[Rfam]
RNA sequence: GUGGACGUGCCGGAGUGGUUAUCGGGCACGACUAGAAAUCAUGUGGGCUUUGGGCAAAGCCCACGCAGGUUCGAAUCCUGCCCGUCCAC
Dot-bracket structure: (((((((.(((((.(....).))))(((.((.......)).))).(((((......)))))....((((.......))))).)))))))
Selenocysteine transfer RNA: an 89-nucleotide RNA sequence from Kingdonia uniflora.
NCBI's taxonomy places the organism under Eukaryota, Streptophyta, Magnoliopsida, Circaeasteraceae, Kingdonia.
It scores 49 bits against the family's covariance model.
The literature on the family includes a 2000 paper in FEBS Lett by Mizutani and Goto, "Eukaryotic selenocysteine tRNA has the 9/4 secondary structure".
The family is grouped with related families in Rfam's "tRNA clan".